[Rfam]
RNA sequence: AGCCGCACUUAUUCGAUUGGGAAACUCAUCAAUUCUUUAAAUUCCGAGACAAGUUUUUGUCGCUAAUGGCGGGCCGCGCCUUUCGAGGUAUGCAUCGCACGGCGGAUUACAACGGUGGCAAAGCUCUCAAAUCCUGUCAAGCGGAGUUUGUUCAUAUCUAAUAGUGCGGCUUUCUAA
Numbered sequence: 001a002g003c004c005g006c007a008c009u010u011a012u013u014c015g016a017u018u019g020g021g022a023a024a025c026u027c028a029u030c031a032a033u034u035c036u037u038u039a040a041a042u043u044c045c046g047a048g049a050c051a052a053g054u055u056u057u058u059g060u061c062g063c064u065a066a067u068g069g070c071g072g073g074c075c076g077c078g079c080c081u082u083u084c085g086a087g088g089u090a091u092g093c094a095u096c097g098c099a100c101g102g103c104g105g106a107u108u109a110c111a112a113c114g115g116u117g118g119c120a121a122a123g124c125u126c127u128c129a130a131a132u133c134c135u136g137u138c139a140a141g142c143g144g145a146g147u148u149u150g151u152u153c154a155u156a157u158c159u160a161a162u163a164g165u166g167c168g169g170c171u172u173u174c175u176a177a
Stems, first nucleotide, its partner, number of pairs: 053124003057121008067111002074105004079088003091099003